[Rfam]
RNA: MIR1435 microRNA precursor family
Organism: Oryza brachyantha
RNA sequence: UAGAUUUGUUCUAAAUCAAACCUCUUCCAGUUUGACCAAGUUUAUAGAAAAAUAUAGCAAUGUUAUCAACACAAAAUAAAUAUACUAUGAAAAUAUAUUCAAUGGUGGAUUUAAUGAAUUCAAUUUGGUGUUGUAGAUGUUAGUACAUUUUUCUAUAAACUUAGUCAAACUUGAAGUGGUUUGACUUAGAAUAAACCCAA
Numbered sequence: 001u002a003g004a005u006u007u008g009u010u011c012u013a014a015a016u017c018a019a020a021c022c023u024c025u026u027c028c029a030g031u032u033u034g035a036c037c038a039a040g041u042u043u044a045u046a047g048a049a050a051a052a053u054a055u056a057g058c059a060a061u062g063u064u065a066u067c068a069a070c071a072c073a074a075a076a077u078a079a080a081u082a083u084a085c086u087a088u089g090a091a092a093a094u095a096u097a098u099u100c101a102a103u104g105g106u107g108g109a110u111u112u113a114a115u116g117a118a119u120u121c122a123a124u125u126u127g128g129u130g131u132u133g134u135a136g137a138u139g140u141u142a143g144u145a146c147a148u149u150u151u152u153c154u155a156u157a158a159a160c161u162u163a164g165u166c167a168a169a170c171u172u173g174a175a176g177u178g179g180u181u182u183g184a185c186u187u188a189g190a191a192u193a194a195a196c197c198c199a200a
Stems, first nucleotide, its partner, number of pairs: 005195005011189004016184007024176003031169005045155008055145002059141006067133002072128001074126004